[Rfam]
RNA: mir-486 microRNA precursor family
Organism: Bos taurus
RNA sequence: GGGUCCUGUACUGAGCUGCCCCGAGGCCCUUCGCUGUGCCCAGCUCGGGUCAGCUCAGUACCGGGCGC
Numbered sequence: 001g002g003g004u005c006c007u008g009u010a011c012u013g014a015g016c017u018g019c020c021c022c023g024a025g026g027c028c029c030u031u032c033g034c035u036g037u038g039c040c041c042a043g044c045u046c047g048g049g050u051c052a053g054c055u056c057a058g059u060a061c062c063g064g065g066c067g068c
Base pairs, nucleotide, nucleotide: 008061009060010059011058012057013056014055015054016053017052018051020049021048022047023046024045025044